[Rfam]
RNA sequence: GGAUAACACUAUUUUGCUAUUCCCGGUCAGUAACAUAAUGACAUGUGGAAAAAAUAUCUAACAUGUCAUAUGUUAUUGGCCGGGAAUAACAAAAAAUGUUAUCC
Numbered sequence: 001g002g003a004u005a006a007c008a009c010u011a012u013u014u015u016g017c018u019a020u021u022c023c024c025g026g027u028c029a030g031u032a033a034c035a036u037a038a039u040g041a042c043a044u045g046u047g048g049a050a051a052a053a054a055u056a057u058c059u060a061a062c063a064u065g066u067c068a069u070a071u072g073u074u075a076u077u078g079g080c081c082g083g084g085a086a087u088a089a090c091a092a093a094a095a096a097u098g099u100u101a102u103c104c
Base pairs, nucleotide, nucleotide: 002103003102004101005100012094013093014092015091016090018088019087020086022084023083024082025081026080027079028078029077030076031075032074033073034072035071036070038069039068040067041066042065043064044063045062046061048059050057

Background
The family of this 104-nucleotide sequence from Prunus persica is "MIR6274 microRNA precursor family". NCBI's taxonomy places the organism under Eukaryota, Streptophyta, Streptophytina, Rosaceae, Prunus.